[Rfam]
Nucleotides: 093
Base pairs, nucleotide, nucleotide: 001043002042003041004040005039010031011030012029014027015026016025017024066093067092068091069090070087071086072085073084074083
Number, partner (000 for none) and nucleotide at each position: 001043c002042g003041g004040u005039c006000g007000g008000g009000a010031g011030g012029c013000c014027c015026c016025c017024g018000g019000u020000g021000g022000g023000a024017c025016g026015g027014g028000c029012g030011c031010c032000a033000g034000g035000c036000a037000u038000g039005g040004a041003c042002c043001g044000g045000a046000u047000c048000a049000a050000u051000a052000c053000c054000g055000u056000c057000u058000c059000a060000g061000a062000u063000g064000g065000g066093g067092g068091c069090g070087c071086g072085c073084c074083g075000g076000g077000g078000c079000c080000c081000g082000a083074c084073g085072g086071c087070g088000c089000c090069c091068g092067c093066u
A member of the RNA family "Rhodo-rpoB RNA", 93 nucleotides long. Rfam classes the family as a cis-regulatory element. The base pairs follow the family's consensus structure, which is taken from published work.